RNA sequence: UUUAUCUUGUUUAAGCUCUGUACUAAAGUUGCAGAAACUAAUAUUGUAUCUUAGCAUUUGGAAUGAAGCUAGCUGAGAAACACAAGAAAAAAAAACUGAACAACUGUAACAGAUAGGAGAAAAAUUGAGUUGAACCUCUUUCUUAAGUCUUCAGUACAUUGUUCUAAGAUUUGGUACAGUAAUA
Numbered sequence: 001u002u003u004a005u006c007u008u009g010u011u012u013a014a015g016c017u018c019u020g021u022a023c024u025a026a027a028g029u030u031g032c033a034g035a036a037a038c039u040a041a042u043a044u045u046g047u048a049u050c051u052u053a054g055c056a057u058u059u060g061g062a063a064u065g066a067a068g069c070u071a072g073c074u075g076a077g078a079a080a081c082a083c084a085a086g087a088a089a090a091a092a093a094a095a096c097u098g099a100a101c102a103a104c105u106g107u108a109a110c111a112g113a114u115a116g117g118a119g120a121a122a123a124a125u126u127g128a129g130u131u132g133a134a135c136c137u138c139u140u141u142c143u144u145a146a147g148u149c150u151u152c153a154g155u156a157c158a159u160u161g162u163u164c165u166a167a168g169a170u171u172u173g174g175u176a177c178a179g180u181a182a183u184a
Stems, first nucleotide, its partner, number of pairs: 018077002023072003029066003034058002038054004043049002105178004110173004127157001129155001131153004
Small nucleolar RNA SNORA81: a 184-nucleotide sequence from Prolemur simus. Rfam 15.1 lists 1,161 matches to the family in 643 species. The family's consensus secondary structure was predicted with WAR. The source organism's lineage runs through Eukaryota, Craniata, Vertebrata, Lemuriformes and Prolemur. A reference for the family is Gu et al. (2005), "A novel experimental approach for systematic identification of box H/ACA snoRNAs from eukaryotes", Nucleic Acids Res.